[Rfam]
RNA sequence: CAUCGUCGAUCUGCUGCGGCGCGAUGAAAUGGAUGUGGGCGUCCAUGCCACCGGCGGUGAGGAUCUUGCCUUCGCCGGCGAUGAUCUCUGUCCCGGGCCCGAUGAUGACAUCGACUCCCGGCUGGGUGUCGGGGUUGCCGGCCUUGCCGAUCACCGCGAUACGCCCGUCGCGUAGGCCGACAUCGGCCUUGUAAAUACCGGUCCAGUCCAGGAUCAGCGCAUUGGUGAUGACCGUGUCCAUAGCACCCUCGGCGCGGGUCAACUGGCUUUGUCCCAUGCCAUCGCGAAUG
Numbered sequence: 001c002a003u004c005g006u007c008g009a010u011c012u013g014c015u016g017c018g019g020c021g022c023g024a025u026g027a028a029a030u031g032g033a034u035g036u037g038g039g040c041g042u043c044c045a046u047g048c049c050a051c052c053g054g055c056g057g058u059g060a061g062g063a064u065c066u067u068g069c070c071u072u073c074g075c076c077g078g079c080g081a082u083g084a085u086c087u088c089u090g091u092c093c094c095g096g097g098c099c100c101g102a103u104g105a106u107g108a109c110a111u112c113g114a115c116u117c118c119c120g121g122c123u124g125g126g127u128g129u130c131g132g133g134g135u136u137g138c139c140g141g142c143c144u145u146g147c148c149g150a151u152c153a154c155c156g157c158g159a160u161a162c163g164c165c166c167g168u169c170g171c172g173u174a175g176g177c178c179g180a181c182a183u184c185g186g187c188c189u190u191g192u193a194a195a196u197a198c199c200g201g202u203c204c205a206g207u208c209c210a211g212g213a214u215c216a217g218c219g220c221a222u223u224g225g226u227g228a229u230g231a232c233c234g235u236g237u238c239c240a241u242a243g244c245a246c247c248c249u250c251g252g253c254g255c256g257g258g259u260c261a262a263c264u265g266g267c268u269u270u271g272u273c274c275c276a277u278g279c280c281a282u283c284g285c286g287a288a289u290g
Base pairs, nucleotide, nucleotide: 001290002289003288007284008283009282012158013157014156016154018076019075020074021073023071030053031052032051034050035049037048039046057069058068059067077148078147081144083142085140090138091137093134094133096130097129098128099125100124102123107117108116166271167270170268173265174264175263176260177258178257186220187219189217190216191215200209201208225255230250231249234246235245236244
RNA: 5' ureB small RNA
Organism: Neotabrizicola shimadae